[Rfam]
RNA sequence: GACUUAUAGGCACUGGCAGGUUAAGUCGGAAAUGACGGAGCCAAAGGGAAACCGAGUCUGAUAAGGGCGCUAGUCAGUGUUUAUAGACCCGAACCCGGGUGAUCUAACCAUGUCCAGGUUGAAGCUUAGGUAACACUAAGUGGAGGACCGAACCGACUUCUGUUGAAAAAGGAGCGGAUGAGGUGUGGUUAGGGGUGAAAUGCCAAUCGAACCCGGAGCUAGCUGGAU
Numbered sequence: 001g002a003c004u005u006a007u008a009g010g011c012a013c014u015g016g017c018a019g020g021u022u023a024a025g026u027c028g029g030a031a032a033u034g035a036c037g038g039a040g041c042c043a044a045a046g047g048g049a050a051a052c053c054g055a056g057u058c059u060g061a062u063a064a065g066g067g068c069g070c071u072a073g074u075c076a077g078u079g080u081u082u083a084u085a086g087a088c089c090c091g092a093a094c095c096c097g098g099g100u101g102a103u104c105u106a107a108c109c110a111u112g113u114c115c116a117g118g119u120u121g122a123a124g125c126u127u128a129g130g131u132a133a134c135a136c137u138a139a140g141u142g143g144a145g146g147a148c149c150g151a152a153c154c155g156a157c158u159u160c161u162g163u164u165g166a167a168a169a170a171g172g173a174g175c176g177g178a179u180g181a182g183g184u185g186u187g188g189u190u191a192g193g194g195g196u197g198a199a200a201u202g203c204c205a206a207u208c209g210a211a212c213c214c215g216g217a218g219c220u221a222g223c224u225g226g227a228u
Stems, first nucleotide, its partner, number of pairs: 005085013019042004025036003046053002056068004088226002091223001095216006104192011115180001117149004124141006153177003157174005194204003